[Rfam]
RNA: Mammalian CPEB3 ribozyme
Organism: Alligator mississippiensis
RNA sequence: AGUCAAGAGUUUGAGGCAUUAGUAGAAGAGCUCAUGGCUCAGCCCUGUCAAGAUUAAAAAGGAAUCUGCAAAUUCUGCU
Dot-bracket structure: ............[.[[[...((((((((((.......))).]]]]...((.((((.......))))))....)))))))